[Rfam]
RNA sequence: AUUAUUACCCUAAGAAAAACACUAACUUUGGAUUUUGUUGCAGUAAGUGCUUUUUGUUGGGGUAGUUAUG
Numbered sequence: 001a002u003u004a005u006u007a008c009c010c011u012a013a014g015a016a017a018a019a020c021a022c023u024a025a026c027u028u029u030g031g032a033u034u035u036u037g038u039u040g041c042a043g044u045a046a047g048u049g050c051u052u053u054u055u056g057u058u059g060g061g062g063u064a065g066u067u068a069u070g
Base pairs, nucleotide, nucleotide: 004066005065006064007063008062009061010060011059013057015055016054017053018051020049021048022047023046025044026043027042

A member of the RNA family "miR-430 microRNA precursor family" from Sparus aurata, 70 nucleotides long. Pairs were carried over by alignment from the consensus structure, which was predicted with RNAalifold. Rfam links the family to the GO terms RISC complex and miRNA-mediated post-transcriptional gene silencing. Clan: mir-290 clan. The family has 32 seed sequences and 24,817 matches in Rfam 15.1. The match comes from Rfam's covariance-model search (62 bits).